[Rfam]
RNA sequence: GAAAAGAGCAGCCUCUCAUGAUGACUCUUCUGCUGAGCAAACCUCCUGAUGAGAAAAACUUAGCCUCUAAGAAGUUGACUGAAGAGGCUGUUGACUC
Numbered sequence: 001g002a003a004a005a006g007a008g009c010a011g012c013c014u015c016u017c018a019u020g021a022u023g024a025c026u027c028u029u030c031u032g033c034u035g036a037g038c039a040a041a042c043c044u045c046c047u048g049a050u051g052a053g054a055a056a057a058a059c060u061u062a063g064c065c066u067c068u069a070a071g072a073a074g075u076u077g078a079c080u081g082a083a084g085a086g087g088c089u090g091u092u093g094a095c096u097c
Stems, first nucleotide, its partner, number of pairs: 007092009

The record is a 97-nucleotide sequence from Microcaecilia unicolor, which matches "Small nucleolar RNA SNORD125" in Rfam. The base pairs follow the family's consensus structure, which was predicted with WAR. A search with the family's covariance model found it, with a score of 82 bits. Rfam links the family to the GO terms nucleolus and RNA processing. Lineage of the source: Eukaryota > Chordata > Teleostomi > Siphonopidae > Microcaecilia. Rfam 15.1 lists 526 matches to the family in 498 species.